[Rfam]
RNA: Flavo-1 RNA
RNA sequence: CUUUAGCCCCGAUUACAGUGAAAAUCAUUAUGUGCCGGGGUUCGGCACAUAAUAUUGAAACGGAAAGCGGGACAAUGU
Numbered sequence: 001c002u003u004u005a006g007c008c009c010c011g012a013u014u015a016c017a018g019u020g021a022a023a024a025u026c027a028u029u030a031u032g033u034g035c036c037g038g039g040g041u042u043c044g045g046c047a048c049a050u051a052a053u054a055u056u057g058a059a060a061c062g063g064a065a066a067g068c069g070g071g072a073c074a075a076u077g078u
Stems, first nucleotide, its partner, number of pairs: 009070003013066002018061002023056003029051008